Rfam assigns this 75-nucleotide RNA to the family "Makes More Granules Regulator RNA (mmgR)".
[Rfam]
RNA sequence: GGGACGGGCCUUUCAGGCAUCCUCUCCUAAAAACUUUCAUAGCCGUCCUUCGGGACGGCUUUUUUUUUGUUCUCG
Number, nucleotide and partner (000 for none) at each position: 001g000002g000003g000004a000005c000006g000007g000008g018009c017010c016011u015012u000013u000014c000015a011016g010017g009018c008019a000020u000021c000022c000023u000024c000025u000026c000027c000028u000029a000030a000031a000032a000033a000034c000035u000036u000037u000038c000039a000040u000041a060042g059043c058044c057045g056046u055047c054048c053049u000050u000051c000052g000053g048054g047055a046056c045057g044058g043059c042060u041061u000062u000063u000064u000065u000066u000067u000068u000069g000070u000071u000072c000073u000074c000075g000
Gene Ontology terms of the family: DNA-templated transcription, termination, response to nitrogen compound and protein binding. The family is grouped with related families in Rfam's "suhB sRNA clan". SuhB later renamed mmgR (makes more granules regulator) was a putative non-coding RNA found multiple times in the Agrobacterium tumefaciens genome and related alpha-proteobacteria. By type it is a small RNA. Pairs were carried over by alignment from the consensus structure.